[Rfam]
RNA sequence: CUUCACUCGCGUGACUGGCGCAUAUAGAUAGAACACUAUCGGGGAGCGUGAGUUUGCUGCCGCCGCGCGCCUGGGCAUUACCU
Numbered sequence: 001c002u003u004c005a006c007u008c009g010c011g012u013g014a015c016u017g018g019c020g021c022a023u024a025u026a027g028a029u030a031g032a033a034c035a036c037u038a039u040c041g042g043g044g045a046g047c048g049u050g051a052g053u054u055u056g057c058u059g060c061c062g063c064c065g066c067g068c069g070c071c072u073g074g075g076c077a078u079u080a081c082c083u
Stems, first nucleotide, its partner, number of pairs: 005053008015043002017071005028039004062076003
RNA: ZMP/ZTP riboswitch aptamer (pfl RNA motif)